[Rfam]
RNA sequence: CUCUUCUGUGUGUGUGUUUGUUUAAUAUGAACAAAGCUUUACAGACAGAUGCAAAUAGUAAAUCCUCUUUUGCAACUCAGAUCUCAUUAUUGAGUAUGACUUUUGGUACAAUAAGAAGUAAUAUG
Numbered sequence: 001c002u003c004u005u006c007u008g009u010g011u012g013u014g015u016g017u018u019u020g021u022u023u024a025a026u027a028u029g030a031a032c033a034a035a036g037c038u039u040u041a042c043a044g045a046c047a048g049a050u051g052c053a054a055a056u057a058g059u060a061a062a063u064c065c066u067c068u069u070u071u072g073c074a075a076c077u078c079a080g081a082u083c084u085c086a087u088u089a090u091u092g093a094g095u096a097u098g099a100c101u102u103u104u105g106g107u108a109c110a111a112u113a114a115g116a117a118g119u120a121a122u123a124u125g
Stems, first nucleotide, its partner, number of pairs: 003051001005049005011043001014038001017035005062122002066118001068116005078105004084099004